A member of the RNA family "mir-1759 microRNA precursor family" from Serilophus lunatus, 72 nucleotides long. NCBI's taxonomy places the organism under Eukaryota, Chordata, Teleostomi, Amniota, Serilophus. Rfam links the family to the GO terms RISC complex and miRNA-mediated post-transcriptional gene silencing. The match comes from Rfam's covariance-model search (59 bits).

[Rfam]
RNA sequence: GCUGUUACAGGGUAGUAGGAGAGAAGUUACCUUAUCAGCUGCCCCCUCUUCCCUCCUCUCCUCUGCAGGAGC
Numbered sequence: 001g002c003u004g005u006u007a008c009a010g011g012g013u014a015g016u017a018g019g020a021g022a023g024a025a026g027u028u029a030c031c032u033u034a035u036c037a038g039c040u041g042c043c044c045c046c047u048c049u050u051c052c053c054u055c056c057u058c059u060c061c062u063c064u065g066c067a068g069g070a071g072c
Stems, first nucleotide, its partner, number of pairs: 001072003005068002008065003011061002014057002017054001018052002021048003026043001028041002031038002